[Rfam]
RNA sequence: GUCAACAACCCCCCACUUAGGCUAACGCCUUGAAGUGUGGGCUUUUAAAGUCCUAGUUGACUAGACUAAGCACCUUGGGUGCUACGUUAUAUAGGUUAUGAUACCCUCGGAUGAUGCCCUAGUCCGUUGCUCUAUCGAAUAUGUGUAAACAGCUCUAAUGGGUAGGAGCAGUCAUAUGUUCACAAAAAGCCUAUAUAACUUUGUCGAAGGGCAAUCAAC
Numbered sequence: 001g002u003c004a005a006c007a008a009c010c011c012c013c014c015a016c017u018u019a020g021g022c023u024a025a026c027g028c029c030u031u032g033a034a035g036u037g038u039g040g041g042c043u044u045u046u047a048a049a050g051u052c053c054u055a056g057u058u059g060a061c062u063a064g065a066c067u068a069a070g071c072a073c074c075u076u077g078g079g080u081g082c083u084a085c086g087u088u089a090u091a092u093a094g095g096u097u098a099u100g101a102u103a104c105c106c107u108c109g110g111a112u113g114a115u116g117c118c119c120u121a122g123u124c125c126g127u128u129g130c131u132c133u134a135u136c137g138a139a140u141a142u143g144u145g146u147a148a149a150c151a152g153c154u155c156u157a158a159u160g161g162g163u164a165g166g167a168g169c170a171g172u173c174a175u176a177u178g179u180u181c182a183c184a185a186a187a188a189g190c191c192u193a194u195a196u197a198a199c200u201u202u203g204u205c206g207a208a209g210g211g212c213a214a215u216c217a218a219c
Stems, first nucleotide, its partner, number of pairs: 001061006008054001010041002013037001042050003064205003068201001069083005086199011101135002105129001108126005113215001115213006137181009149172002152169005158163001